[Rfam]
RNA sequence: GUUCGACAACGGCAAACUUGCUGAAAGGCAAGGACGCAAAGCUAAGGGUCUAAGGUUCUGGAACAAGAACUAUGGCAGCCUGGUUACCGAA
Numbered sequence: 001g002u003u004c005g006a007c008a009a010c011g012g013c014a015a016a017c018u019u020g021c022u023g024a025a026a027g028g029c030a031a032g033g034a035c036g037c038a039a040a041g042c043u044a045a046g047g048g049u050c051u052a053a054g055g056u057u058c059u060g061g062a063a064c065a066a067g068a069a070c071u072a073u074g075g076c077a078g079c080c081u082g083g084u085u086a087c088c089g090a091a
Base pairs, nucleotide, nucleotide: 012037013036017032018031019030020029021028022027040085041084042083043082045081046080047079048076049075050074055070056069057068058067
Dot-bracket structure: ...........((...((((((....))))))...))..((((.((((((....((((........))))...)))..)))))))......
A member of the RNA family "c-di-GMP-I riboswitch aptamer" from Paenibacillus whitsoniae, 91 nucleotides long. The match comes from Rfam's covariance-model search (84 bits).